Description: Rfam assigns this 127-nucleotide sequence to the family "Staphylococcus-1 RNA".
RNA sequence: CUCGUAAAUCUGAACACUUUCUUUUGAGAAAGCUGACUGACUAAUCUUCUGUAAUGCUAUUAUGAGGAUUGCCCUUUGAGGUUCAUAGCAAUAGGUCACCCUAUGGUUGGUCACAUGCAUUUGCGAG
Numbered sequence: 001c002u003c004g005u006a007a008a009u010c011u012g013a014a015c016a017c018u019u020u021c022u023u024u025u026g027a028g029a030a031a032g033c034u035g036a037c038u039g040a041c042u043a044a045u046c047u048u049c050u051g052u053a054a055u056g057c058u059a060u061u062a063u064g065a066g067g068a069u070u071g072c073c074c075u076u077u078g079a080g081g082u083u084c085a086u087a088g089c090a091a092u093a094g095g096u097c098a099c100c101c102u103a104u105g106g107u108u109g110g111u112c113a114c115a116u117g118c119a120u121u122u123g124c125g126a127g
Stems, first nucleotide, its partner, number of pairs: 001127009017032006035112007043070007056089005091104005